RNA sequence: CUUUUGCAUCAAGAGUUGGGUCCACCCCAACGCCAACCUGCCCUCCCAGGCAAGGUGGCAGCCUUAGGGCGAUGCGGCCGAUCGUCGGCAACGAAAUGGGAUCUA
Numbered sequence: 001c002u003u004u005u006g007c008a009u010c011a012a013g014a015g016u017u018g019g020g021u022c023c024a025c026c027c028c029a030a031c032g033c034c035a036a037c038c039u040g041c042c043c044u045c046c047c048a049g050g051c052a053a054g055g056u057g058g059c060a061g062c063c064u065u066a067g068g069g070c071g072a073u074g075c076g077g078c079c080g081a082u083c084g085u086c087g088g089c090a091a092c093g094a095a096a097u098g099g100g101a102u103c104u105a
Stems, first nucleotide, its partner, number of pairs: 006075005015031006032059003037055003040051003044101005077089004
Rfam assigns this 105-nucleotide RNA from Asticcacaulis sp. AC466 to the family "SAM-I/IV (S-adenosyl methionine) riboswitch aptamer". The family's consensus secondary structure is taken from published work.